[Rfam]
RNA sequence: GGAUGUGAGGGCGAUCUGGCUGUGACAUCUGUGACCCUAUUGAUCGCCAGGGUUGAUUCAGAUGAUCUGGCUGGCUAAGCAGGCGUCCCCUUUCCUCCUCACCGCUCCAUGUGUGUCCCUCCUGAAGCUGUGUGCUCAGUCGAAGAGGAUGACCUUCCCCAGUAGAGACAUACUAUUUAUCAGUCAAGGGUAUACGGUAGCUGCACUCCCCUGCUAGAACCUCCAAACAAGGUCCAUUUGUAGGAGAAAGUAGGGUAGUCAAGCUUCCAAGACUGCAAACGCAUCCAACUGAGGCACUGCAUGGGGCAGUCUGCCAUUGUUU
Numbered sequence: 001g002g003a004u005g006u007g008a009g010g011g012c013g014a015u016c017u018g019g020c021u022g023u024g025a026c027a028u029c030u031g032u033g034a035c036c037c038u039a040u041u042g043a044u045c046g047c048c049a050g051g052g053u054u055g056a057u058u059c060a061g062a063u064g065a066u067c068u069g070g071c072u073g074g075c076u077a078a079g080c081a082g083g084c085g086u087c088c089c090c091u092u093u094c095c096u097c098c099u100c101a102c103c104g105c106u107c108c109a110u111g112u113g114u115g116u117c118c119c120u121c122c123u124g125a126a127g128c129u130g131u132g133u134g135c136u137c138a139g140u141c142g143a144a145g146a147g148g149a150u151g152a153c154c155u156u157c158c159c160c161a162g163u164a165g166a167g168a169c170a171u172a173c174u175a176u177u178u179a180u181c182a183g184u185c186a187a188g189g190g191u192a193u194a195c196g197g198u199a200g201c202u203g204c205a206c207u208c209c210c211c212u213g214c215u216a217g218a219a220c221c222u223c224c225a226a227a228c229a230a231g232g233u234c235c236a237u238u239u240g241u242a243g244g245a246g247a248a249a250g251u252a253g254g255g256u257a258g259u260c261a262a263g264c265u266u267c268c269a270a271g272a273c274u275g276c277a278a279a280c281g282c283a284u285c286c287a288a289c290u291g292a293g294g295c296a297c298u299g300c301a302u303g304g305g306g307c308a309g310u311c312u313g314c315c316a317u318u319g320u321u322u
Stems, first nucleotide, its partner, number of pairs: 001108003005102007013093002018090002024087003028083005035074002037070003042067004047061001119167003122139004127135002140162001142160001147158003200264003206258002209255006221246004227241005287322002291317001293315003296310005